Fungal signal recognition particle RNA: a 263-nucleotide sequence from Elsinoe australis. For this family Rfam cites "Towards the structure of the mammalian signal recognition particle" (Wild et al., Curr Opin Struct Biol, 2002). A search with the family's covariance model found it, with a score of 97 bits. Lineage of the source: Eukaryota > Opisthokonta > Fungi > leotiomyceta > Elsinoe.
RNA sequence: AUGCUGUGAUGGCAUUAAGAGAAAUCGCGCCUUUCAUCUGCCAAGGUUCCCUUUUCCAUCCAACAAUCGUUGCCCAGUUCGAUCGAGGUGUCUGCCUUCGAAUCCCGGUGGAGUAAUCCCUGGACGAAUUUGAGCAUGAAGUUGCGGAUACCCUUCAGCCCGGCAACGGGGCAGAGAGUUCGCAGUCAUGUCGAGGCGGUGCUGGAUUACAGCGAUUGUUGGCGGGAGUUGAUGGUAUUGAGUUGGGGUGCGAUAACUCUUUU
Number, nucleotide and partner (000 for none) at each position: 001a015002u014003g013004c012005u000006g000007u000008g000009a000010u000011g000012g004013c003014a002015u001016u000017a261018a260019g259020a258021g257022a000023a000024a000025u253026c252027g251028c250029g249030c248031c247032u000033u000034u000035c000036a000037u241038c235039u234040g233041c000042c231043a230044a229045g000046g000047u226048u225049c224050c000051c222052u000053u000054u000055u000056c000057c000058a000059u000060c000061c221062a220063a219064c218065a217066a216067u215068c214069g213070u212071u211072g210073c000074c205075c204076a203077g202078u201079u199080c198081g197082a000083u194084c193085g192086a191087g000088g189089u188090g187091u000092c000093u000094g000095c000096c134097u133098u132099c000100g131101a130102a129103u128104c000105c123106c122107g121108g120109u000110g000111g118112a117113g000114u000115a000116a000117u112118c111119c000120c108121u107122g106123g105124a000125c000126g000127a000128a103129u102130u101131u100132g098133a097134g096135c000136a000137u000138g000139a000140a000141g000142u185143u184144g183145c182146g181147g180148a179149u000150a000151c000152c000153c176154u175155u174156c000157a000158g000159c000160c169161c168162g167163g000164c000165a000166a000167c162168g161169g160170g000171g000172c000173a000174g155175a154176g153177a000178g000179u148180u147181c146182g145183c144184a143185g142186u000187c090188a089189u088190g000191u086192c085193g084194a083195g000196g000197c081198g080199g079200u000201g078202c077203u076204g075205g074206a000207u000208u000209a000210c072211a071212g070213c069214g068215a067216u066217u065218g064219u063220u062221g061222g051223c000224g049225g048226g047227a000228g000229u044230u043231g042232a000233u040234g039235g038236u000237a000238u000239u000240g000241a037242g000243u000244u000245g000246g000247g031248g030249u029250g028251c027252g026253a025254u000255a000256a000257c021258u020259c019260u018261u017262u000263u000